Shown here is a 70-nucleotide RNA sequence from Beta vulgaris, a member of the family "Small nucleolar RNA Z105".
The family's consensus secondary structure was predicted with CMfinder.
Lineage of the source: Eukaryota > Mesangiospermae > Pentapetalae > Beta > Beta vulgaris.
A reference for the family is Chen et al. (2003), "The high diversity of snoRNAs in plants: identification and comparative study of 120 snoRNA genes from Oryza sativa", Nucleic Acids Res.
Gene Ontology terms of the family: RNA processing and nucleolus.
RNA sequence: GCGUAAUGAUGAUGAUCUUAUAUAAAACCGACAAGUUCAUGAAUGGAAUACAACCUCCUACUCAUACUGA
Numbered sequence: 001g002c003g004u005a006a007u008g009a010u011g012a013u014g015a016u017c018u019u020a021u022a023u024a025a026a027a028c029c030g031a032c033a034a035g036u037u038c039a040u041g042a043a044u045g046g047a048a049u050a051c052a053a054c055c056u057c058c059u060a061c062u063c064a065u066a067c068u069g070a
Base pairs, nucleotide, nucleotide: 006065007064008063009062029046032041